[Rfam]
RNA sequence: CGAGAUAACUCUCUCUAAGGAACUCGGCAAAAUUGCCCCGUAACUUCGGGAGAAGGGGUGCCACCGCAAGGUGGUCGCAGUGAAUAGAUCCAGGCGACUGUUUACCAAAAACACAGGUCUCCGCUAAGUCGCAAGACGAUGUAUGGGGGCUGACGCCUGCCCAGUGCCGGAAGGUUAAGGAAGUUGGUUAGCUUCGGCGAAGCUAGCGACCGAAGCCCCGGUGAACGGCGGCCGUAACUAUAACGGUCCUAAGGUAGCGAAAUUCCUUGUCGGGUAAGUUCCGACCCGCACGAAAGGCGUAACGAUCUGGAUACUGUCUCGGAGAGAGGCUCG
Number, nucleotide and partner (000 for none) at each position: 001c333002g332003a331004g330005a000006u000007a000008a000009c328010u327011c326012u325013c324014u323015c322016u321017a000018a319019g318020g317021a000022a000023c000024u000025c000026g000027g000028c000029a000030a000031a000032a000033u000034u000035g059036c058037c057038c056039c055040g000041u000042a000043a000044c049045u000046u000047c000048g000049g044050g000051a000052g000053a000054a000055g039056g038057g037058g036059u035060g075061c074062c073063a072064c071065c070066g000067c000068a000069a000070g065071g064072u063073g062074g061075u060076c080077g000078c000079a000080g076081u000082g000083a000084a000085u000086a000087g000088a312089u311090c310091c309092a308093g307094g306095c304096g303097a000098c000099u113100g112101u111102u000103u000104a000105c000106c000107a000108a000109a000110a000111a101112c100113a099114c000115a000116g151117g150118u149119c148120u147121c146122c145123g144124c141125u000126a000127a000128g137129u136130c135131g000132c000133a000134a000135g130136a129137c128138g000139a000140u000141g124142u000143a000144u123145g122146g121147g120148g119149g118150c117151u116152g000153a000154c299155g298156c297157c296158u000159g229160c228161c227162c000163a000164g226165u225166g222167c221168c220169g219170g218171a000172a000173g217174g216175u215176u000177a000178a000179g211180g210181a000182a000183g207184u206185u205186g204187g203188u202189u000190a000191g198192c197193u000194u000195c000196g000197g192198c191199g000200a000201a000202g188203c187204u186205a185206g184207c183208g000209a000210c180211c179212g000213a000214a000215g175216c174217c173218c170219c169220g168221g167222u166223g000224a000225a165226c164227g161228g160229c159230g248231g247232c246233c245234g244235u243236a000237a000238c000239u000240a000241u000242a000243a235244c234245g233246g232247u231248c230249c253250u000251a000252a000253g249254g000255u000256a000257g000258c000259g286260a000261a000262a000263u000264u000265c000266c000267u000268u000269g285270u284271c283272g282273g281274g280275u000276a000277a000278g000279u000280u274281c273282c272283g271284a270285c269286c259287c000288g000289c000290a000291c000292g000293a000294a000295a000296g157297g156298c155299g154300u000301a000302a000303c096304g095305a000306u094307c093308u092309g091310g090311a089312u088313a000314c000315u000316g000317u020318c019319u018320c000321g016322g015323a014324g013325a012326g011327a010328g009329g000330c004331u003332c002333g001